Annotation
The record is a 102-nucleotide sequence from Jeongeupia sacculi, which matches "TPP riboswitch aptamer (THI element)" in Rfam. Lineage of the source: Bacteria > Pseudomonadati > Pseudomonadota > Chitinibacteraceae > Jeongeupia.

[Rfam]
RNA sequence: GUAGUUCGCUAGGGGUUUCGCCCAUCCAACAUGGGCGAAUGAGAGAGUCCCUCAGCACCUGAUCCGGUUCACACCGGCGUAGGGAAGCGAAUCGGUCGGUGC
Numbered sequence: 001g002u003a004g005u006u007c008g009c010u011a012g013g014g015g016u017u018u019c020g021c022c023c024a025u026c027c028a029a030c031a032u033g034g035g036c037g038a039a040u041g042a043g044a045g046a047g048u049c050c051c052u053c054a055g056c057a058c059c060u061g062a063u064c065c066g067g068u069u070c071a072c073a074c075c076g077g078c079g080u081a082g083g084g085a086a087g088c089g090a091a092u093c094g095g096u097c098g099g100u101g102c
Stems, first nucleotide, its partner, number of pairs: 006090005011052004016046001017039009058083004064077004